[Rfam]
RNA: Acido-Lenti-1 RNA
RNA sequence: CCUGGUUCUCACAAACCAGGCUGAGCUAUUCCAUUCCUUCGGAAUU
Numbered sequence: 001c002c003u004g005g006u007u008c009u010c011a012c013a014a015a016c017c018a019g020g021c022u023g024a025g026c027u028a029u030u031c032c033a034u035u036c037c038u039u040c041g042g043a044a045u046u
Stems, first nucleotide, its partner, number of pairs: 001020007033045005